[Rfam]
RNA sequence: GGUCACGAGUUCCAGCGCGAAGCCCCGGCUCGCUGGACGGCAACCCUCCUCGCGGUGGGGUGCCCCGGGUGAGGACCGGGCCGCGGCGACCGUCGCGGCAAGCGCGACCA
Numbered sequence: 001g002g003u004c005a006c007g008a009g010u011u012c013c014a015g016c017g018c019g020a021a022g023c024c025c026c027g028g029c030u031c032g033c034u035g036g037a038c039g040g041c042a043a044c045c046c047u048c049c050u051c052g053c054g055g056u057g058g059g060g061u062g063c064c065c066c067g068g069g070u071g072a073g074g075a076c077c078g079g080g081c082c083g084c085g086g087c088g089a090c091c092g093u094c095g096c097g098g099c100a101a102g103c104g105c106g107a108c109c110a
Stems, first nucleotide, its partner, number of pairs: 001077004009038001011037006021030002039064003044060003048055002080099008

Rfam assigns this 110-nucleotide RNA from Pedococcus cremeus to the family "SAM (S-adenosyl methionine) riboswitch aptamer". The source organism's lineage runs through Bacteria, Actinomycetota, Actinomycetes, Intrasporangiaceae and Pedococcus. Gene Ontology terms of the family: S-adenosylmethionine metabolic process and regulation of gene expression. Rfam's curators write: SAM-IV is a mRNA element that regulates gene expression via direct sensing of S-adenosylmethionine (SAM or AdoMet). SAM-IV riboswitches share conserved nucleotide positions with the previously described SAM-I riboswitches sequence analysis and molecular recognition experiments suggest that SAM-I and SAM-IV riboswitches share similar ligand binding sites, but have different scaffolds.